[Rfam]
RNA sequence: GCCAUCCAUUGACCCAGGUUGUAUUGUAACCAAGCUAUGUAUCUGAGUUGCAUGGGUAUGAUACGACCUGGGUUACAGGAUGGU
Numbered sequence: 001g002c003c004a005u006c007c008a009u010u011g012a013c014c015c016a017g018g019u020u021g022u023a024u025u026g027u028a029a030c031c032a033a034g035c036u037a038u039g040u041a042u043c044u045g046a047g048u049u050g051c052a053u054g055g056g057u058a059u060g061a062u063a064c065g066a067c068c069u070g071g072g073u074u075a076c077a078g079g080a081u082g083g084u
Base pairs, nucleotide, nucleotide: 001084002083003082004081005080006079007078010077011074012073013072014071015070016069017068018067019066020065021064022063023062024061025060026059027058028057030055031054032053034051035050036047038045
RNA: mir-729 microRNA precursor family
Organism: Carassius auratus